[Rfam]
RNA sequence: UUCGCUGCUUGCCGAAAACUUCAAACUACAAUCUAUAAGACCUUUGUUGAUUUGUCUUAUGUAAACAAAUAAAGAAAUCAACA
Numbered sequence: 001u002u003c004g005c006u007g008c009u010u011g012c013c014g015a016a017a018a019c020u021u022c023a024a025a026c027u028a029c030a031a032u033c034u035a036u037a038a039g040a041c042c043u044u045u046g047u048u049g050a051u052u053u054g055u056c057u058u059a060u061g062u063a064a065a066c067a068a069a070u071a072a073a074g075a076a077a078u079c080a081a082c083a
Stems, first nucleotide, its partner, number of pairs: 034061003038057004045083007
The family of this 83-nucleotide RNA sequence is "RAGATH-27 RNA". Pairs were carried over by alignment from the consensus structure, which is taken from published work.